[Rfam]
RNA sequence: ACCCCUGGCAGCCCCUCCUGAUGAUUUUCCUUCCUAAGCCUGCUCAUGAUGCGCAAACAGAGCCUCUAAGUUGAUUAAAGGGGCUGCUUCCCC
Numbered sequence: 001a002c003c004c005c006u007g008g009c010a011g012c013c014c015c016u017c018c019u020g021a022u023g024a025u026u027u028u029c030c031u032u033c034c035u036a037a038g039c040c041u042g043c044u045c046a047u048g049a050u051g052c053g054c055a056a057a058c059a060g061a062g063c064c065u066c067u068a069a070g071u072u073g074a075u076u077a078a079a080g081g082g083g084c085u086g087c088u089u090c091c092c093c
Stems, first nucleotide, its partner, number of pairs: 007088009
This 93-nucleotide RNA sequence from Saimiri boliviensis belongs to the Rfam family "Small nucleolar RNA SNORD125". NCBI's taxonomy places the organism under Eukaryota, Bilateria, Gnathostomata, Euteleostomi, Saimiri boliviensis. The base pairs follow the family's consensus structure, which was predicted with WAR. The literature on the family includes a 2006 paper in Nucleic Acids Res by Yang et al., "snoSeeker: an advanced computational package for screening of guide and orphan snoRNA genes in the human genome".